[Rfam]
RNA sequence: AAAGGAAGUGAUGAUCUUUCUCAUAUAAGCUUAGGGAUAGGGCCUAGGCGUUUCUACAAGGAAACCGUAAAUUUCCUGGCUAUGAGAAAAAUCUCGUUUGGG
Numbered sequence: 001a002a003a004g005g006a007a008g009u010g011a012u013g014a015u016c017u018u019u020c021u022c023a024u025a026u027a028a029g030c031u032u033a034g035g036g037a038u039a040g041g042g043c044c045u046a047g048g049c050g051u052u053u054c055u056a057c058a059a060g061g062a063a064a065c066c067g068u069a070a071a072u073u074u075c076c077u078g079g080c081u082a083u084g085a086g087a088a089a090a091a092u093c094u095c096g097u098u099u100g101g102g
Stems, first nucleotide, its partner, number of pairs: 018088008029049007059077006